[Rfam]
RNA sequence: AACAAUUCGACAGGGGCGACCUGAGAACACAUGUUGAGAUACACGCUUUCACUAUGCGCGAGAUUCGAGGAAUCAAACCAAACAUGUGAUCUCAGAUUGCCCCUAUUGAACAUUU
Numbered sequence: 001a002a003c004a005a006u007u008c009g010a011c012a013g014g015g016g017c018g019a020c021c022u023g024a025g026a027a028c029a030c031a032u033g034u035u036g037a038g039a040u041a042c043a044c045g046c047u048u049u050c051a052c053u054a055u056g057c058g059c060g061a062g063a064u065u066c067g068a069g070g071a072a073u074c075a076a077a078c079c080a081a082a083c084a085u086g087u088g089a090u091c092u093c094a095g096a097u098u099g100c101c102c103c104u105a106u107u108g109a110a111c112a113u114u115u
Base pairs, nucleotide, nucleotide: 007109008108012104013103014102016100017099018098019097023093024092025091026090028088029087030086031085032084033083034082035081
Rfam assigns this 115-nucleotide sequence from Capsicum baccatum to the family "MIR398 microRNA precursor family".
Taxonomically the source falls in Capsicum (Eukaryota, asterids, Solanales, Capsiceae).
The match comes from Rfam's covariance-model search (56 bits).
The family has 14 seed sequences and 627 matches in Rfam 15.1.
Rfam links the family to the GO terms RISC complex and miRNA-mediated post-transcriptional gene silencing.
On this family, see Jones-Rhoades and Bartel, Mol Cell 2004: "Computational identification of plant microRNAs and their targets, including a stress-induced miRNA".